[Rfam]
This 88-nucleotide RNA sequence from Carnegiea gigantea belongs to the Rfam family "Small nucleolar RNA Z159/U59". Gene Ontology terms of the family: nucleolus and RNA processing. The family's RNA type in Rfam is C/D-box small nucleolar RNA. Its Rfam clan is "SNORD59 clan". The organism belongs to Carnegiea, within Eukaryota.
RNA sequence: GCCUCCAAUGAUGAUGAAAGUAAAAACUUUCGUUCUUCUGAAUAAUCCCCAUGUGGAAAAUAUAUUUGGAGACCUGAAGUGAGGAGGC
Numbered sequence: 001g002c003c004u005c006c007a008a009u010g011a012u013g014a015u016g017a018a019a020g021u022a023a024a025a026a027c028u029u030u031c032g033u034u035c036u037u038c039u040g041a042a043u044a045a046u047c048c049c050c051a052u053g054u055g056g057a058a059a060a061u062a063u064a065u066u067u068g069g070a071g072a073c074c075u076g077a078a079g080u081g082a083g084g085a086g087g088c
Stems, first nucleotide, its partner, number of pairs: 003086004